[Rfam]
A member of the RNA family "Selenocysteine insertion sequence 1" from Molossus molossus, 66 nucleotides long. The organism belongs to Molossus, within Eukaryota. It scores 37 bits against the family's covariance model. The base pairs follow the family's consensus structure, which is taken from published work.
RNA sequence: CUGACGUCAUGAAGGCCUGCACUGAAGACAGCCAGCUGUUAGUGCAGGCCAGAUGCUCCCCGGCAG
Numbered sequence: 001c002u003g004a005c006g007u008c009a010u011g012a013a014g015g016c017c018u019g020c021a022c023u024g025a026a027g028a029c030a031g032c033c034a035g036c037u038g039u040u041a042g043u044g045c046a047g048g049c050c051a052g053a054u055g056c057u058c059c060c061c062g063g064c065a066g
Stems, first nucleotide, its partner, number of pairs: 001066003005062001014050010029038003